[Rfam]
RNA: SAH (S-adenosyl-L-homocysteine) riboswitch aptamer
RNA sequence: CCGUUCGAGGAGCGUUGCGACACACCCAUGCUUUUUUGGGGUGCUAGGCUCGAACAAGAAAUAAACAACGGCGCUCACGCUUC
Numbered sequence: 001c002c003g004u005u006c007g008a009g010g011a012g013c014g015u016u017g018c019g020a021c022a023c024a025c026c027c028a029u030g031c032u033u034u035u036u037u038g039g040g041g042u043g044c045u046a047g048g049c050u051c052g053a054a055c056a057a058g059a060a061a062u063a064a065a066c067a068a069c070g071g072c073g074c075u076c077a078c079g080c081u082u083c
Base pairs, nucleotide, nucleotide: 003055004054005053006052007051008050021043022042023041025039026038
Dot-bracket structure: ..((((((............(((.((...........)).)))......))))))............................